Nucleotides: 125
Base pairs, nucleotide, nucleotide: 009045010044011043012037013036015034017032018031019030020029021028022027063118064117065116067114068113069112073111074110075109078106079105080104087098088097089096
Number, partner (000 for none) and nucleotide at each position: 001000a002000a003000g004000u005000a006000a007000c008000a009045c010044u011043c012037u013036g014000u015034g016000g017032c018031a019030g020029a021028c022027a023000a024000u025000g026000u027022u028021g029020u030019c031018u032017g033000a034015c035000u036013c037012a038000a039000u040000u041000u042000u043011g044010a045009g046000c047000u048000u049000g050000c051000u052000a053000u054000a055000g056000u057000a058000a059000a060000a061000g062000a063118a064117a065116g066000g067114c068113u069112a070000a071000c072000c073111u074110a075109u076000u077000c078106c079105a080104g081000c082000g083000g084000u085000c086000g087098c088097u089096u090000u091000c092000a093000a094000g095000u096089g097088a098087g099000a100000c101000u102000g103000u104080c105079u106078g107000u108000u109075a110074u111073a112069u113068a114067g115000a116065c117064u118063u119000u120000g121000a122000c123000a124000g125000g